This 66-nucleotide RNA sequence from Capsicum annuum belongs to the Rfam family "Small nucleolar RNA U49". Rfam 15.1 lists 340 matches to the family in 152 species. The literature on the family includes a 2001 paper in RNA by Brown et al., "Multiple snoRNA gene clusters from Arabidopsis". Rfam classes the family as a C/D-box small nucleolar RNA. The source organism's lineage runs through Eukaryota, Embryophyta, eudicotyledons, Capsiceae and Capsicum. Rfam links the family to the GO terms nucleolus and RNA processing.
[Rfam]
RNA sequence: UGCCGAUGAGGAAGACAUCCCAAAGAAUAGGAAGUGCCGUAUGACACUUUAAAAAGCACCGGCGGC
Number, nucleotide and partner (000 for none) at each position: 001u000002g000003c000004c000005g000006a000007u000008g000009a000010g000011g000012a000013a000014g060015a000016c000017a000018u000019c000020c000021c000022a000023a000024a000025g000026a000027a000028u000029a000030g000031g050032a049033a048034g047035u046036g045037c000038c000039g000040u000041a000042u000043g000044a000045c036046a035047c034048u033049u032050u031051a000052a000053a000054a000055a000056g000057c000058a000059c000060c014061g000062g000063c000064g000065g000066c000